[Rfam]
RNA sequence: UGGUGCCCGUCACCCACUGAGGAAGAUCCCCGAGGGGCGAGGGGCGGCAGGGAUC
Numbered sequence: 001u002g003g004u005g006c007c008c009g010u011c012a013c014c015c016a017c018u019g020a021g022g023a024a025g026a027u028c029c030c031c032g033a034g035g036g037g038c039g040a041g042g043g044g045c046g047g048c049a050g051g052g053a054u055c
Base pairs, nucleotide, nucleotide: 006043007042008041010040011039013037014036015035018032025055026054027053028052029051030050
Source information:
Shown here is a 55-nucleotide RNA from Myotis brandtii, a member of the family "Antizyme RNA frameshifting stimulation element". The family has 13 seed sequences and 1,595 matches in Rfam 15.1. NCBI's taxonomy places the organism under Eukaryota, Vertebrata, Dipnotetrapodomorpha, Eutheria, Myotis. This family represents a structural element which is found in antizyme mRNA and is known to promote frameshifting. Antizyme genes have have two partially overlapping open reading frames, the second, which encodes the functional protein requires +1 translational frameshifting. This frameshift is stimulated by a pseudoknot present 3' of the frameshift site in the antizyme mRNA. The frameshifting efficiency is dependent on the level of polyamines in the cell, when the polyamine concentration is high frameshifting is more likely to occur which leads to an increase in the quantity of functional antizyme produced.